RNA sequence: AGUAGUUGCAGUGAGGAUAACAAGUUCCCUCUUCUGAAAUCAAGUUGAGGAAGAUCGUUGGCAGAAUCGAACCAUAAUCAAACGCCACCACUGAGUAA
Numbered sequence: 001a002g003u004a005g006u007u008g009c010a011g012u013g014a015g016g017a018u019a020a021c022a023a024g025u026u027c028c029c030u031c032u033u034c035u036g037a038a039a040u041c042a043a044g045u046u047g048a049g050g051a052a053g054a055u056c057g058u059u060g061g062c063a064g065a066a067u068c069g070a071a072c073c074a075u076a077a078u079c080a081a082a083c084g085c086c087a088c089c090a091c092u093g094a095g096u097a098a
Stems, first nucleotide, its partner, number of pairs: 006098004

Shown here is a 98-nucleotide RNA from Tetracentron sinense, a member of the family "Small nucleolar RNA R30/Z108". Gene Ontology terms of the family: RNA processing and nucleolus. The family is grouped with related families in Rfam's "SNORD100 clan". The source organism's lineage runs through Eukaryota, Embryophyta, Spermatophyta, Trochodendraceae and Tetracentron. Rfam's curators write: snoR30 is a C/D box small nucleolar RNA which acts as a methylation guide for 18S ribosomal RNA in plants.